Shown here is a 115-nucleotide RNA from Sinorhizobium alkalisoli, a member of the family "Alphaproteobacterial ar15". It is annotated as a small RNA. The family is grouped with related families in Rfam's "suhB sRNA clan". Rfam links the family to the GO term protein binding. Lineage of the source: Bacteria > Pseudomonadati > Alphaproteobacteria > Hyphomicrobiales > Sinorhizobium. It scores 107 bits against the family's covariance model.

RNA sequence: GGCUGAUGCAUUUGGCGGCUUUCUCCUCCCCGGCCGCAGCAGCAGCCGUUCCCCUCUGGAGGUUUUUCAAACCUUCACAACUGACAGGGCCCAAGUUCUCUUGCGGCCCUUUUUU
Numbered sequence: 001g002g003c004u005g006a007u008g009c010a011u012u013u014g015g016c017g018g019c020u021u022u023c024u025c026c027u028c029c030c031c032g033g034c035c036g037c038a039g040c041a042g043c044a045g046c047c048g049u050u051c052c053c054c055u056c057u058g059g060a061g062g063u064u065u066u067u068c069a070a071a072c073c074u075u076c077a078c079a080a081c082u083g084a085c086a087g088g089g090c091c092c093a094a095g096u097u098c099u100c101u102u103g104c105g106g107c108c109c110u111u112u113u114u115u
Base pairs, nucleotide, nucleotide: 001047002046003045004044005043007041008040009039015037016036017035018034057077058076059075060074061073062072063071086110087109088108089107090106091105092103093102094101095100